[Rfam]
RNA sequence: CACCUGCAUGCGCUGAAUUCCAUUAGGAAGCGGGGGAACCAUCUUUUUGGGGUGAACCUCAUGGAUUAUGAGGAGGGAGACUCUUUCUUCCUAACCCGUCAGCUAACCUCGUAAGCGUUAAAGAGGGGUGGU
Dot-bracket structure: ..........((((...(((......)))((((((....((......))(((.....((((.......))))..((((.........))))...))).........)))))).))))...............
Background: The family of this 132-nucleotide RNA sequence from Caldalkalibacillus thermarum is "c-di-AMP riboswitch aptamer (ydaO/yuaA leader)". The match comes from Rfam's covariance-model search (110 bits). Pairs were carried over by alignment from the consensus structure. Gene Ontology terms of the family: regulation of gene expression and cyclic-di-AMP binding.